[Rfam]
RNA sequence: GAAAAAAAGCAGAAGCACCCGCUUCUCGCCUAGAUAACCAGAGUUAUCGGGCAGACGAACGAUGAAUUGAUUCCCAUUAACGGGGUUGAGCGGGCGUGUUAUGCGCCUGCUCUUUUUUGUGGAU
Numbered sequence: 001g002a003a004a005a006a007a008a009g010c011a012g013a014a015g016c017a018c019c020c021g022c023u024u025c026u027c028g029c030c031u032a033g034a035u036a037a038c039c040a041g042a043g044u045u046a047u048c049g050g051g052c053a054g055a056c057g058a059a060c061g062a063u064g065a066a067u068u069g070a071u072u073c074c075c076a077u078u079a080a081c082g083g084g085g086u087u088g089a090g091c092g093g094g095c096g097u098g099u100u101a102u103g104c105g106c107c108u109g110c111u112c113u114u115u116u117u118u119g120u121g122g123a124u
Stems, first nucleotide, its partner, number of pairs: 011026006028052003034047005089111010
RNA: Ribosomal protein L20 leader